[Rfam]
RNA sequence: GUCGAGCUUAGUAACGCAGGCUUGUGAUCCAAGUGGAGACAACAAGAUGAUGGGACACUGGACCGAUCUCCUUGGGCCGGGUUCGGGUUAGGCUAUCUACUGGCUUGCCCAUUCCAAGUUGGGAGUUGAGGGUUCGGAUUCAAGCGAAGGCUUGUGGUUCGACCUAUCUUAGAGCGGUGGGGACUGCGUGAGGCUGGUUUCACAGAGCAGCGUCACCUCCCGCUCUCAACGGUGGAAGGAUCACGAGUCGGUGCCUUCCGAGCCCACUAUGACCCAAUAAGCCGGCUCCAAUCGGACCAUCAUCUUU
Numbered sequence: 001g002u003c004g005a006g007c008u009u010a011g012u013a014a015c016g017c018a019g020g021c022u023u024g025u026g027a028u029c030c031a032a033g034u035g036g037a038g039a040c041a042a043c044a045a046g047a048u049g050a051u052g053g054g055a056c057a058c059u060g061g062a063c064c065g066a067u068c069u070c071c072u073u074g075g076g077c078c079g080g081g082u083u084c085g086g087g088u089u090a091g092g093c094u095a096u097c098u099a100c101u102g103g104c105u106u107g108c109c110c111a112u113u114c115c116a117a118g119u120u121g122g123g124a125g126u127u128g129a130g131g132g133u134u135c136g137g138a139u140u141c142a143a144g145c146g147a148a149g150g151c152u153u154g155u156g157g158u159u160c161g162a163c164c165u166a167u168c169u170u171a172g173a174g175c176g177g178u179g180g181g182g183a184c185u186g187c188g189u190g191a192g193g194c195u196g197g198u199u200u201c202a203c204a205g206a207g208c209a210g211c212g213u214c215a216c217c218u219c220c221c222g223c224u225c226u227c228a229a230c231g232g233u234g235g236a237a238g239g240a241u242c243a244c245g246a247g248u249c250g251g252u253g254c255c256u257u258c259c260g261a262g263c264c265c266a267c268u269a270u271g272a273c274c275c276a277a278u279a280a281g282c283c284g285g286c287u288c289c290a291a292u293c294g295g296a297c298c299a300u301c302a303u304c305u306u307u
Base pairs, nucleotide, nucleotide: 001040002039003038004023005022006021007020008019009018028037029036030035044306045305046304047303048302049301050300051299052298053297056294059290060289061288063285064284065283067281069280072277073276074275075274076273078271079265080264081263082262083261084260085259086258090256091255092254094253095252100251101250102249103248104247105246106245107244109239110238112237113236114235115234116233118230119229120228121227122226123225124224125223126222128168129167131165132164134162135161136160137159138158139157140156141154142153143152144151145150169174176220177219179217180216186213187212188211189210194205195204196203
Background: Plant signal recognition particle RNA: a 307-nucleotide sequence from Brassica cretica. The base pairs follow the family's consensus structure, which is taken from published work. The family has 63 seed sequences and 4,988 matches in Rfam 15.1. For this family Rfam cites "Crystal structure of the ribonucleoprotein core of the signal recognition particle" (Batey et al., Science, 2000). The family is grouped with related families in Rfam's "SRP clan". The match comes from Rfam's covariance-model search (239 bits). Rfam links the family to the GO terms signal recognition particle, endoplasmic reticulum targeting and SRP-dependent cotranslational protein targeting to membrane, signal sequence recognition.